Background: The record is a 58-nucleotide RNA sequence from Granulicatella balaenopterae, which matches "Ribosomal protein L13 leader" in Rfam. The family's consensus secondary structure was predicted with CMfinder. Rfam describes the family as follows. This family is a putative r-protein leader autoregulatory structure found in B. subtilis and other low-GC Gram-positive bacteria. It is located in the 5' untranslated regions of mRNAs encoding the L13-S9 (rplM-rpsI) ribosomal protein operon. Rfam links the family to the GO term regulation of gene expression.
RNA sequence: GGUAUUGUUUGCCCCACGAUAGAGCCCCGGAAACUCAAUUGUGAUUAACAAACAACAG
Numbered sequence: 001g002g003u004a005u006u007g008u009u010u011g012c013c014c015c016a017c018g019a020u021a022g023a024g025c026c027c028c029g030g031a032a033a034c035u036c037a038a039u040u041g042u043g044a045u046u047a048a049c050a051a052a053c054a055a056c057a058g
Base pairs, nucleotide, nucleotide: 006054007053008052009051010050011049015043016042017041018040019039022036023035024034